[Rfam]
RNA sequence: CUGGAGUGAUGAUGCUUAGCCAAAUCAGAUAUGUGCUCCAAGAGGGCAUAAAAAUGGGAUUGCCUCUUGUUGUAGCGCGUCUCAGACGAUAUCACAGAGAAUGGUUGUUGUCUGACCAGA
Number, nucleotide and partner (000 for none) at each position: 001c119002u118003g117004g116005a000006g000007u000008g000009a000010u000011g000012a000013u000014g000015c000016u000017u000018a000019g000020c000021c000022a000023a000024a000025u000026c000027a000028g000029a000030u000031a000032u000033g000034u000035g000036c000037u000038c000039c000040a000041a000042g000043a000044g000045g000046g000047c000048a000049u000050a000051a000052a000053a000054a000055u000056g000057g000058g000059a000060u000061u000062g000063c000064c000065u000066c000067u000068u000069g000070u000071u000072g000073u000074a000075g000076c000077g000078c000079g000080u000081c000082u000083c000084a000085g000086a000087c000088g000089a000090u000091a000092u000093c000094a000095c000096a000097g000098a000099g000100a000101a000102u000103g000104g000105u000106u000107g000108u000109u000110g000111u000112c000113u000114g000115a000116c004117c003118a002119g001120a000
small nucleolar RNA snoR127: a 120-nucleotide sequence from Raphanus sativus. Taxonomically the source falls in Raphanus (Eukaryota, Euphyllophyta, Brassicaceae, Brassiceae). The family has 3 seed sequences and 273 matches in Rfam 15.1. It scores 125 bits against the family's covariance model. The base pairs follow the family's consensus structure, which was predicted with RNAalifold. By type it is a C/D-box small nucleolar RNA.